A member of the RNA family "Small nucleolar RNA SNORA29" from Suricata suricatta, 140 nucleotides long.

RNA sequence: AAACACACACAACACCCAGUUUAAUUUUUGCAAGUUUGUUUUGGUGGCUAUGCUUAUGGGAUAGAUUAAAAUUGCCAUGAUCUGAAGAGGGAGGAUUUAUUUGUGUCCUCCUCCUAUAUGAAAUGGCUGAACAGACCAAA
Numbered sequence: 001a002a003a004c005a006c007a008c009a010c011a012a013c014a015c016c017c018a019g020u021u022u023a024a025u026u027u028u029u030g031c032a033a034g035u036u037u038g039u040u041u042u043g044g045u046g047g048c049u050a051u052g053c054u055u056a057u058g059g060g061a062u063a064g065a066u067u068a069a070a071a072u073u074g075c076c077a078u079g080a081u082c083u084g085a086a087g088a089g090g091g092a093g094g095a096u097u098u099a100u101u102u103g104u105g106u107c108c109u110c111c112u113c114c115u116a117u118a119u120g121a122a123a124u125g126g127c128u129g130a131a132c133a134g135a136c137c138a139a140a
Base pairs, nucleotide, nucleotide: 004060006058007057016047017046018045074127075126076125077124092115093114094113095112
Rfam classes the family as an H/ACA-box small nucleolar RNA. The family is grouped with related families in Rfam's "SNORA20 clan". NCBI's taxonomy places the organism under Eukaryota, Eumetazoa, Gnathostomata, Theria, Suricata. A reference for the family is Huttenhofer et al. (2001), "RNomics: an experimental approach that identifies 201 candidates for novel, small, non-messenger RNAs in mouse", EMBO J. ACA29 is a member of the H/ACA class of snoRNA that guide the sites of modification of uridines to pseudouridines.